[Rfam]
RNA sequence: AUGUGCCUGGCUCCCUGUAUGCCACUCAUCUAGAGCAACAACUUCUGCGAGGUUGCCUACGAUGGCUGGCGUGCACGGAGCCAAGCAUAU
Numbered sequence: 001a002u003g004u005g006c007c008u009g010g011c012u013c014c015c016u017g018u019a020u021g022c023c024a025c026u027c028a029u030c031u032a033g034a035g036c037a038a039c040a041a042c043u044u045c046u047g048c049g050a051g052g053u054u055g056c057c058u059a060c061g062a063u064g065g066c067u068g069g070c071g072u073g074c075a076c077g078g079a080g081c082c083a084a085g086c087a088u089a090u
Stems, first nucleotide, its partner, number of pairs: 001090006008083007016075009027064003
mir-160 microRNA precursor family: a 90-nucleotide RNA from Oryza meyeriana. The literature on the family includes a 2002 paper in Cell by Rhoades et al., "Prediction of plant microRNA targets". Rfam 15.1 lists 1,502 matches to the family in 247 species. Its family is annotated with miRNA-mediated post-transcriptional gene silencing and RISC complex in the Gene Ontology. It scores 86 bits against the family's covariance model.